This 321-nucleotide RNA sequence from Trema andersonii belongs to the Rfam family "Plant signal recognition particle RNA". A search with the family's covariance model found it, with a score of 177 bits.
RNA sequence: GCCAAUCUAGAUGUUUUUUGCUUGCGCUAGAUUAUAACUCAUGUGAGGGUAUUAAGUUGGUCGGACUGCAGUUCGGCCCACUCGGUAGGGUUGAUGUGGUGGUGCAUCUCGUUGGCCUACCUGGUCCAAGUUGUGAGUUGGGCCAUGUGACUCUAGCGAAGGCUUGUGUCACAUGGUUCGUAGAGAGGGGGGCACCGCAUGAGGCUGGUUUCACAGAGCAGCGUAAACCUCCCGCUCAUGAUAGUGGAAGGAUUACGAGCCACUGGUACACCCUCAACCCAUAUUGCCCAGUAGGCCAUCCUUGGUUGGAUAACCAUUUUU
Numbered sequence: 001g002c003c004a005a006u007c008u009a010g011a012u013g014u015u016u017u018u019u020g021c022u023u024g025c026g027c028u029a030g031a032u033u034a035u036a037a038c039u040c041a042u043g044u045g046a047g048g049g050u051a052u053u054a055a056g057u058u059g060g061u062c063g064g065a066c067u068g069c070a071g072u073u074c075g076g077c078c079c080a081c082u083c084g085g086u087a088g089g090g091u092u093g094a095u096g097u098g099g100u101g102g103u104g105c106a107u108c109u110c111g112u113u114g115g116c117c118u119a120c121c122u123g124g125u126c127c128a129a130g131u132u133g134u135g136a137g138u139u140g141g142g143c144c145a146u147g148u149g150a151c152u153c154u155a156g157c158g159a160a161g162g163c164u165u166g167u168g169u170c171a172c173a174u175g176g177u178u179c180g181u182a183g184a185g186a187g188g189g190g191g192g193c194a195c196c197g198c199a200u201g202a203g204g205c206u207g208g209u210u211u212c213a214c215a216g217a218g219c220a221g222c223g224u225a226a227a228c229c230u231c232c233c234g235c236u237c238a239u240g241a242u243a244g245u246g247g248a249a250g251g252a253u254u255a256c257g258a259g260c261c262a263c264u265g266g267u268a269c270a271c272c273c274u275c276a277a278c279c280c281a282u283a284u285u286g287c288c289c290a291g292u293a294g295g296c297c298a299u300c301c302u303u304g305g306u307u308g309g310a311u312a313a314c315c316a317u318u319u320u321u
Stems, first nucleotide, its partner, number of pairs: 001050003004033007038047003054320003058316004063311001066308001069304002071300001073298001075296001078294001080292003084288004089279006096272001098271001100270001103265002113262004118257001121251002125248004130242009140179012153166001155164003187232005197224002200221001205216003
Dot-bracket structure: ((((((((((................)))))))....(((....))))))...(((.((((.(..(..(((.(.(..(.(((.((((.((((((.(.(.(..((........((((.(..((..((((.(((((((((.((((((((((((.(.(((....))).).)))))))))))).......(((((.....((.(....(((......)))....).))...))))).)))))))))..)))).)).....).)))).))....))).)))))).....)))).))).).).).)..))...)..).)))).))).